[Rfam]
RNA sequence: AACCACACUAUCAAUGAAUAGAUUUACCCGUGAUAUGACAUGGCUGUUCCACUUAGGACAAAGACGUGGCAUCCUAUUACCAGCCAUCGCACGAAAUUAAUAGGAUGCCAUAGGUGGAACAACCACGUCAUCUCGUAGUUGAAUCCAUUCAUUGAUAGUGUGGUU
Numbered sequence: 001a002a003c004c005a006c007a008c009u010a011u012c013a014a015u016g017a018a019u020a021g022a023u024u025u026a027c028c029c030g031u032g033a034u035a036u037g038a039c040a041u042g043g044c045u046g047u048u049c050c051a052c053u054u055a056g057g058a059c060a061a062a063g064a065c066g067u068g069g070c071a072u073c074c075u076a077u078u079a080c081c082a083g084c085c086a087u088c089g090c091a092c093g094a095a096a097u098u099a100a101u102a103g104g105a106u107g108c109c110a111u112a113g114g115u116g117g118a119a120c121a122a123c124c125a126c127g128u129c130a131u132c133u134c135g136u137a138g139u140u141g142a143a144u145c146c147a148u149u150c151a152u153u154g155a156u157a158g159u160g161u162g163g164u165u
Base pairs, nucleotide, nucleotide: 001165002164003163004162005161006160007159009157010156011155012154013153014152015151017149018148019147021145022144023143024142025141026140028138030136031135032134033133035131036130037129038128039127041125042124043123045121046120047119048118051115052114054112055111057109069108070107071106072105073104074103075102076101077100078099079098086097087096

About this RNA: Shown here is a 165-nucleotide RNA sequence from Oryza sativa, a member of the family "MIR807 microRNA precursor family". Gene Ontology terms of the family: RISC complex and miRNA-mediated post-transcriptional gene silencing. NCBI's taxonomy places the organism under Eukaryota, Streptophytina, Embryophyta, Petrosaviidae, Oryza sativa. The family has 30 seed sequences and 1,514 matches in Rfam 15.1. The match comes from Rfam's covariance-model search (153 bits). A reference for the family is Luo et al. (2006), "Rice embryogenic calli express a unique set of microRNAs, suggesting regulatory roles of microRNAs in plant post-embryogenic development", FEBS Lett.